[Rfam]
RNA sequence: UUGCUCAAGGGAAGUAGUGAGUCCCUGACAUGGAGAUUCCAUCCCUUUCACUUUGCCAGCUCUCGGUCUUUAUCUUUAACCGUUGCUGGCCAUUCUUGGAUGGUACAUUA
Numbered sequence: 001u002u003g004c005u006c007a008a009g010g011g012a013a014g015u016a017g018u019g020a021g022u023c024c025c026u027g028a029c030a031u032g033g034a035g036a037u038u039c040c041a042u043c044c045c046u047u048u049c050a051c052u053u054u055g056c057c058a059g060c061u062c063u064c065g066g067u068c069u070u071u072a073u074c075u076u077u078a079a080c081c082g083u084u085g086c087u088g089g090c091c092a093u094u095c096u097u098g099g100a101u102g103g104u105a106c107a108u109u110a
Base pairs, nucleotide, nucleotide: 039103040102041101042100043099055090056089057088058087059086060085